[Rfam]
RNA sequence: GGGGCGACUCUUAGAAACCCCAGUAGUGCAAUGGUGUUAAUAGCUUUACUUUUGGCCGAGUAUCGCAGUUAGUGAAUC
Numbered sequence: 001g002g003g004g005c006g007a008c009u010c011u012u013a014g015a016a017a018c019c020c021c022a023g024u025a026g027u028g029c030a031a032u033g034g035u036g037u038u039a040a041u042a043g044c045u046u047u048a049c050u051u052u053u054g055g056c057c058g059a060g061u062a063u064c065g066c067a068g069u070u071a072g073u074g075a076a077u078c
Stems, first nucleotide, its partner, number of pairs: 001021004037072005043066002047062005

Source information: The family of this 78-nucleotide RNA is "L13-Bacteroidia ribosomal protein leader".